[Rfam]
RNA sequence: ACGAGGGCCGCGGGAGAGAGUCGCGGGGAAGGGGAACAUCGCGCGACCGCCGAAGGUGAAAGGUUCGUGGCAGAGGCAUGCCGCGGCCGAAUCUCUCAGGCAAAAGGACCGCGAGCCGGAG
Numbered sequence: 001a002c003g004a005g006g007g008c009c010g011c012g013g014g015a016g017a018g019a020g021u022c023g024c025g026g027g028g029a030a031g032g033g034g035a036a037c038a039u040c041g042c043g044c045g046a047c048c049g050c051c052g053a054a055g056g057u058g059a060a061a062g063g064u065u066c067g068u069g070g071c072a073g074a075g076g077c078a079u080g081c082c083g084c085g086g087c088c089g090a091a092u093c094u095c096u097c098a099g100g101c102a103a104a105a106g107g108a109c110c111g112c113g114a115g116c117c118g119g120a121g
Stems, first nucleotide, its partner, number of pairs: 006116001009113005020047006049101003052097002056095001058093001062088004
RNA: Glycine riboswitch aptamer